[Rfam]
RNA sequence: CGGAAGUGCCGUUCUCGAACUGGACCGAUUGUUGCCUGAACAAUAUCAAUCUUCCCAGCUCAGAACGCACUUUCCUUAUCCCGACACCCCGACAAACAGUCCAUUGUCAGUGGAUCGAG
Numbered sequence: 001c002g003g004a005a006g007u008g009c010c011g012u013u014c015u016c017g018a019a020c021u022g023g024a025c026c027g028a029u030u031g032u033u034g035c036c037u038g039a040a041c042a043a044u045a046u047c048a049a050u051c052u053u054c055c056c057a058g059c060u061c062a063g064a065a066c067g068c069a070c071u072u073u074c075c076u077u078a079u080c081c082c083g084a085c086a087c088c089c090c091g092a093c094a095a096a097c098a099g100u101c102c103a104u105u106g107u108c109a110g111u112g113g114a115u116c117g118a119g
Base pairs, nucleotide, nucleotide: 002074003073004072005071006070007069008068009067011066012065013064014063017061018060020058021057022056023055027051028050029049031047033045034044101117103115104114105113106111
Actinobacteria sRNA Ms_IGR-7: a 119-nucleotide RNA sequence from Mycobacterium marinum.
Rfam's curators put it in the seed alignment.
Lineage of the source: Bacteria > Bacillati > Mycobacteriaceae > Mycobacterium > Mycobacterium marinum.